[Rfam]
RNA sequence: CCCUCGGUCGACAAAUCGCCAUUCGAAGCUUACAGACGGAGACACUCGUCCUCGGGCACAGCGUCUCACCAAUCUAAACAUGCUUUGGGAGAAAGUCCCCGGACGACUCCUCUUCGGAGCCUGCGGAAACGCGCCGCCAUAGAAGCAAUGCGGCUUACCUCGGCUCCUUGGCCCCCUCGCAUCGACUCCCUGCCCUGCCCGUCGCUACAUCUGCUUCGCGCGAUUGCCCAUCUCCUCGUCGGUCCCUCACGGUCGUGCGUCUCCAGCCCUCUUGGAUGAAGAUAUGAGUCCGUGCCGGCGGCGUGCUUCCUGGGGAUUUCCCGUGAGAGGGCUAGCGCUUGCGGAUGACGGGUGGACGCCCGGGGCUCAAGUCGGCGAGAGCGGUAUCGGGCGCCGAGGACUGUUGUCGAAAUCGAUAGGUAUGCGAUUGCCUGGUCUCGAGCUGGGUUACCCGAUGGGGCUUAUUCUCGAGGCGAGG
Numbered sequence: 001c002c003c004u005c006g007g008u009c010g011a012c013a014a015a016u017c018g019c020c021a022u023u024c025g026a027a028g029c030u031u032a033c034a035g036a037c038g039g040a041g042a043c044a045c046u047c048g049u050c051c052u053c054g055g056g057c058a059c060a061g062c063g064u065c066u067c068a069c070c071a072a073u074c075u076a077a078a079c080a081u082g083c084u085u086u087g088g089g090a091g092a093a094a095g096u097c098c099c100c101g102g103a104c105g106a107c108u109c110c111u112c113u114u115c116g117g118a119g120c121c122u123g124c125g126g127a128a129a130c131g132c133g134c135c136g137c138c139a140u141a142g143a144a145g146c147a148a149u150g151c152g153g154c155u156u157a158c159c160u161c162g163g164c165u166c167c168u169u170g171g172c173c174c175c176c177u178c179g180c181a182u183c184g185a186c187u188c189c190c191u192g193c194c195c196u197g198c199c200c201g202u203c204g205c206u207a208c209a210u211c212u213g214c215u216u217c218g219c220g221c222g223a224u225u226g227c228c229c230a231u232c233u234c235c236u237c238g239u240c241g242g243u244c245c246c247u248c249a250c251g252g253u254c255g256u257g258c259g260u261c262u263c264c265a266g267c268c269c270u271c272u273u274g275g276a277u278g279a280a281g282a283u284a285u286g287a288g289u290c291c292g293u294g295c296c297g298g299c300g301g302c303g304u305g306c307u308u309c310c311u312g313g314g315g316a317u318u319u320c321c322c323g324u325g326a327g328a329g330g331g332c333u334a335g336c337g338c339u340u341g342c343g344g345a346u347g348a349c350g351g352g353u354g355g356a357c358g359c360c361c362g363g364g365g366c367u368c369a370a371g372u373c374g375g376c377g378a379g380a381g382c383g384g385u386a387u388c389g390g391g392c393g394c395c396g397a398g399g400a401c402u403g404u405u406g407u408c409g410a411a412a413u414c415g416a417u418a419g420g421u422a423u424g425c426g427a428u429u430g431c432c433u434g435g436u437c438u439c440g441a442g443c444u445g446g447g448u449u450a451c452c453c454g455a456u457g458g459g460g461c462u463u464a465u466u467c468u469c470g471a472g473g474c475g476a477g478g
Stems, first nucleotide, its partner, number of pairs: 002478005008471004014429006023089001024087006039067005045061001093463003097460004122133004349362005365401001367399001372397006382389002431447006
This 478-nucleotide sequence from Ophiocordyceps camponoti-leonardi belongs to the Rfam family "RNase MRP". By type it is a ribozyme.